[Rfam]
RNA: Iron response element I
Organism: Tursiops truncatus
RNA sequence: CUGGCUCCUGCAUCAACAGUGUUUGGUUGGAACUG
Numbered sequence: 001c002u003g004g005c006u007c008c009u010g011c012a013u014c015a016a017c018a019g020u021g022u023u024u025g026g027u028u029g030g031a032a033c034u035g
Base pairs, nucleotide, nucleotide: 001035003033006031007030008029010028012027013026014025015024016023017021
Dot-bracket structure: (.(..(((.(.((((((...).))))))))).).)